[Rfam]
A member of the RNA family "RNase MRP" from Penicillium brasilianum, 377 nucleotides long. The match comes from Rfam's covariance-model search (126 bits). The organism belongs to Penicillium, within Eukaryota.
RNA sequence: UCCUCGCUCAAAGAAUCGCAUUCAAAGCUCACACACAAAGAAGAUUCCUCUUCUUUUACGCAUUCGCUUUGGGAGAAAGUCCCCGGACAUCCUGCGCUCUUUUCAGAGUUCUUCAAGUCAGGCAAUGCGGAAACGCGCCGCCAUAGAAGCAAUUUGAUAGCGGCUUACGCCCUACUCCUACUGGCUCUUGUGCUCGCCGUCCGACAGUGUUACGCUGGUUACAAUGGGGCGUGCGGCCUGGGGUUGGAGGGGAGAAGGGGGGACUUCGGUCUUCCCUUGUAUCGGGUUGCCUUUCGUCGUGGUUCGAUAGUCAUGCGAUUGCCCCUUGUUCCUCGUGGAUGGGGGGUAACUCAAUGGGGCUCAUUCUUGAGGCGAGG
Number, nucleotide and partner (000 for none) at each position: 001u000002c377003c376004u375005c374006g373007c372008u370009c369010a368011a367012a000013g000014a320015a319016u318017c317018g316019c315020a000021u000022u073023c071024a070025a069026a068027g067028c066029u000030c000031a000032c000033a000034c000035a000036c000037a000038a055039a054040g053041a052042a051043g050044a049045u000046u000047c000048c000049u044050c043051u042052u041053c040054u039055u038056u000057u000058a000059c000060g000061c000062a000063u000064u000065c000066g028067c027068u026069u025070u024071g023072g000073g022074a000075g000076a000077a000078a361079g360080u000081c359082c358083c357084c356085g000086g000087a000088c000089a000090u000091c000092c000093u000094g000095c000096g000097c000098u000099c000100u000101u000102u000103u000104c000105a000106g000107a000108g000109u000110u000111c000112u000113u000114c000115a000116a000117g000118u000119c000120a000121g000122g000123c000124a000125a000126u000127g000128c000129g000130g000131a000132a000133a000134c000135g000136c000137g000138c000139c000140g000141c000142c000143a000144u000145a000146g000147a000148a000149g000150c000151a000152a000153u000154u000155u000156g000157a000158u000159a000160g000161c000162g000163g000164c000165u000166u000167a000168c000169g000170c000171c000172c000173u000174a000175c000176u000177c000178c000179u000180a000181c000182u000183g000184g000185c000186u000187c000188u000189u000190g000191u000192g000193c000194u000195c000196g000197c000198c000199g000200u000201c000202c000203g000204a000205c226206a225207g000208u223209g222210u221211u000212a000213c000214g000215c000216u000217g000218g000219u000220u000221a210222c209223a208224a000225u206226g205227g000228g291229g290230c289231g000232u000233g000234c000235g000236g000237c286238c285239u284240g283241g282242g000243g280244u279245u000246g277247g274248a273249g272250g271251g000252g000253a000254g000255a000256a000257g267258g266259g265260g264261g000262g000263a000264c260265u259266u258267c257268g000269g000270u000271c250272u249273u248274c247275c000276c000277u246278u000279g244280u243281a000282u241283c240284g239285g238286g237287u000288u000289g230290c229291c228292u000293u000294u000295c000296g000297u000298c000299g000300u000301g000302g000303u000304u000305c000306g000307a000308u000309a000310g000311u000312c000313a000314u000315g019316c018317g017318a016319u015320u014321g000322c346323c345324c344325c343326u342327u341328g340329u339330u338331c000332c000333u000334c000335g000336u000337g000338g330339a329340u328341g327342g326343g325344g324345g323346g322347u000348a000349a000350c000351u000352c000353a000354a000355u000356g084357g083358g082359g081360c079361u078362c000363a000364u000365u000366c000367u011368u010369g009370a008371g000372g007373c006374g005375a004376g003377g002
The family is grouped with related families in Rfam's "RNaseP clan".